Rfam assigns this 77-nucleotide RNA from Neolamprologus brichardi to the family "mir-92 microRNA precursor family". NCBI's taxonomy places the organism under Eukaryota, Euteleostomi, Neoteleostei, Acanthomorphata, Neolamprologus. From the family's description: This family represents the microRNA precursor mir-92.
[Rfam]
RNA sequence: CUUUCUGUGUAGGUGGGGAUAGGUAGCAAUGCUGUGUUCCUCCAGGUAUUGCACUUGUCCCGGCCUGUGUGGAAACG
Dot-bracket structure: ...(((..((((((.(((((.(((.((((((((...........))))))))))).))))).))))))..)))....

Annotation: Gene Ontology terms of the family: RISC complex and miRNA-mediated post-transcriptional gene silencing. The literature on the family includes a 2002 paper in Genes Dev by Mourelatos et al., "miRNPs: a novel class of ribonucleoproteins containing numerous microRNAs". It scores 69 bits against the family's covariance model.